[Rfam]
Shown here is a 135-nucleotide RNA from Arabis nemorensis, a member of the family "mir-393 microRNA precursor family". Gene Ontology terms of the family: RISC complex and miRNA-mediated post-transcriptional gene silencing. Pairs were carried over by alignment from the consensus structure.
RNA sequence: GAAGGAUGAAUCCAAAGGAAUAGCAUGAUCCAAAACCAAGCAAAUUUUUGGGUUUCUUUUUUGCUAAUAAUUAAGAAAAUAGUUGGGAAAAUUCACCUUAAUUAGGAUCAAUGCGAUCCCUUUGGAUUCUUCCUC
Numbered sequence: 001g002a003a004g005g006a007u008g009a010a011u012c013c014a015a016a017g018g019a020a021u022a023g024c025a026u027g028a029u030c031c032a033a034a035a036c037c038a039a040g041c042a043a044a045u046u047u048u049u050g051g052g053u054u055u056c057u058u059u060u061u062u063g064c065u066a067a068u069a070a071u072u073a074a075g076a077a078a079a080u081a082g083u084u085g086g087g088a089a090a091a092u093u094c095a096c097c098u099u100a101a102u103u104a105g106g107a108u109c110a111a112u113g114c115g116a117u118c119c120c121u122u123u124g125g126a127u128u129c130u131u132c133c134u135c
Base pairs, nucleotide, nucleotide: 003134004133005132006131008129009128010127011126012125013124014123015122016121017120018119020117021116023114024113025112026110027109028108029107030106031105035102
Dot-bracket structure: ..((((.(((((((((((.((.(((((((((...(..................................................................)..)))))).))).)).))))))))))).)))).